RNA sequence: GGAGUCGGCCAGGCAGCCGCGAGGCCGCAAGGCUUCGAGGAAAGUCCGGGCUCCACAGGGCAGGGUGCCAGGUAACGCCUGGGCGGCGCGAGCCGACGGAAAGUGCAACAGAGAGCAGACCGCCGAUGGCCUCGCGAGAGGAUCAGGCAAGGGUGAAACGGUGCGGUAAGAGCGCACCGCGAGUCCGGCAACGGACCGGCACGGCAAACCCCACCCGGAGCAAGACCGAAUAGGGGGACCAUGGCGCGGCCCGCGUCGUCCCCGGGUUGGUUGCUCGAGCCGUGCGGCGACGCACGGCCUAGAGGAAUGGCUGCCCACGACAGAACCCGGCUUAUCGGCCGACUUCACUC
Numbered sequence: 001g002g003a004g005u006c007g008g009c010c011a012g013g014c015a016g017c018c019g020c021g022a023g024g025c026c027g028c029a030a031g032g033c034u035u036c037g038a039g040g041a042a043a044g045u046c047c048g049g050g051c052u053c054c055a056c057a058g059g060g061c062a063g064g065g066u067g068c069c070a071g072g073u074a075a076c077g078c079c080u081g082g083g084c085g086g087c088g089c090g091a092g093c094c095g096a097c098g099g100a101a102a103g104u105g106c107a108a109c110a111g112a113g114a115g116c117a118g119a120c121c122g123c124c125g126a127u128g129g130c131c132u133c134g135c136g137a138g139a140g141g142a143u144c145a146g147g148c149a150a151g152g153g154u155g156a157a158a159c160g161g162u163g164c165g166g167u168a169a170g171a172g173c174g175c176a177c178c179g180c181g182a183g184u185c186c187g188g189c190a191a192c193g194g195a196c197c198g199g200c201a202c203g204g205c206a207a208a209c210c211c212c213a214c215c216c217g218g219a220g221c222a223a224g225a226c227c228g229a230a231u232a233g234g235g236g237g238a239c240c241a242u243g244g245c246g247c248g249g250c251c252c253g254c255g256u257c258g259u260c261c262c263c264g265g266g267u268u269g270g271u272u273g274c275u276c277g278a279g280c281c282g283u284g285c286g287g288c289g290a291c292g293c294a295c296g297g298c299c300u301a302g303a304g305g306a307a308u309g310g311c312u313g314c315c316c317a318c319g320a321c322a323g324a325a326c327c328c329g330g331c332u333u334a335u336c337g338g339c340c341g342a343c344u345u346c347a348c349u350c
Stems, first nucleotide, its partner, number of pairs: 001346010011335001012315007020037007042333003046330005051220004058252004063216005068082005083097001084095004098211002103209002105205002120152002122148003127145003131141002160178006179200001180198002183196005224272004234263006243257005279298008